SAM riboswitch aptamer (S box leader): a 107-nucleotide RNA from Scopulibacillus darangshiensis. NCBI's taxonomy places the organism under Bacteria, Bacilli, Caryophanales, Sporolactobacillaceae, Scopulibacillus. The SAM riboswitch is found upstream of a number of genes which code for proteins involved in methionine or cysteine biosynthesis in Gram-positive bacteria.
RNA sequence: UUACUAUCCAGAGAGGCGAAGGGACUGGCCCGAUGAAGCCCGGCAACCUGCAGAUCGUGCAAGGUGCUAAAUCCAGCAAAAUGGCACACCAUUUUGGAAGAUAGGUG
Numbered sequence: 001u002u003a004c005u006a007u008c009c010a011g012a013g014a015g016g017c018g019a020a021g022g023g024a025c026u027g028g029c030c031c032g033a034u035g036a037a038g039c040c041c042g043g044c045a046a047c048c049u050g051c052a053g054a055u056c057g058u059g060c061a062a063g064g065u066g067c068u069a070a071a072u073c074c075a076g077c078a079a080a081a082u083g084g085c086a087c088a089c090c091a092u093u094u095u096g097g098a099a100g101a102u103a104g105g106u107g
Stems, first nucleotide, its partner, number of pairs: 001107001004104005013041001015040003021031003025076004042068004047064002049061004072099001077096006